[Rfam]
RNA sequence: ACACGAGAAGGGAGGUGGUUCGGCAGAUGUAUCAAAUCCGGACGCGUGAGGUGGCUGCGGGCUAGCAGUCCGUCGUCGCGCUCAGCGCAUUCGCCGGACACGCGCAUCGCAGGAUGUGCGGCCGGCCAAUCCCAAGCAGUCACCCGACCCGCGGGUCGCCGGUACGUCCGACCGGCCCCCUCGCGCCACGGCGCAGGGGUACAGACCCGCGGGUCGCCUGCG
Numbered sequence: 001a002c003a004c005g006a007g008a009a010g011g012g013a014g015g016u017g018g019u020u021c022g023g024c025a026g027a028u029g030u031a032u033c034a035a036a037u038c039c040g041g042a043c044g045c046g047u048g049a050g051g052u053g054g055c056u057g058c059g060g061g062c063u064a065g066c067a068g069u070c071c072g073u074c075g076u077c078g079c080g081c082u083c084a085g086c087g088c089a090u091u092c093g094c095c096g097g098a099c100a101c102g103c104g105c106a107u108c109g110c111a112g113g114a115u116g117u118g119c120g121g122c123c124g125g126c127c128a129a130u131c132c133c134a135a136g137c138a139g140u141c142a143c144c145c146g147a148c149c150c151g152c153g154g155g156u157c158g159c160c161g162g163u164a165c166g167u168c169c170g171a172c173c174g175g176c177c178c179c180c181u182c183g184c185g186c187c188a189c190g191g192c193g194c195a196g197g198g199g200u201a202c203a204g205a206c207c208c209g210c211g212g213g214u215c216g217c218c219u220g221c222g
Base pairs, nucleotide, nucleotide: 015058016057017056018055019054060127061126062125063124065122066121068119069118071116073114074113145216146215147214148213149212150211151210152209153208154207155206156205157204158176159175160174161173162172163171
Actinobacteria sRNA Ms_IGR-5: a 222-nucleotide RNA from Streptomyces sparsogenes.
On this family, see Li et al., RNA 2013: "Identification of small RNAs in Mycobacterium smegmatis using heterologous Hfq".